[Rfam]
RNA sequence: UACUGAUAAAGGCAAACUAUUUGAAAAAAUAGGACGCAAAGCCUAGGGUCUAAAGCCAUUUUUGGUUAUGAUCGCCUGGUUACCAAA
Numbered sequence: 001u002a003c004u005g006a007u008a009a010a011g012g013c014a015a016a017c018u019a020u021u022u023g024a025a026a027a028a029a030u031a032g033g034a035c036g037c038a039a040a041g042c043c044u045a046g047g048g049u050c051u052a053a054a055g056c057c058a059u060u061u062u063u064g065g066u067u068a069u070g071a072u073c074g075c076c077u078g079g080u081u082a083c084c085a086a087a
Stems, first nucleotide, its partner, number of pairs: 012037002017032006040081004045077003048072003055066004
Rfam assigns this 87-nucleotide sequence from Ornithinibacillus bavariensis to the family "c-di-GMP-I riboswitch aptamer".